[Rfam]
RNA sequence: AUAUUCUUAGGCCCAUUCUUGAGGCAGGAACUGAAUAGUUGGUGAACUCGCUCUAUGUUGUUCGUUCACUCGUGACACGGUUCAUGUCCCAAGACCGAGUCUGUGAAUAU
Dot-bracket structure: ((((((.(((((.(..(((((.((((.((((((..(......................................)..)))))).)))).)))))..).))))).))))))
This 110-nucleotide RNA from Oryza sativa belongs to the Rfam family "MIR1861 microRNA precursor family". Gene Ontology terms of the family: miRNA-mediated post-transcriptional gene silencing and RISC complex. The family has 13 seed sequences and 210 matches in Rfam 15.1. Taxonomically the source falls in Oryza sativa (Eukaryota, Euphyllophyta, Mesangiospermae, Liliopsida).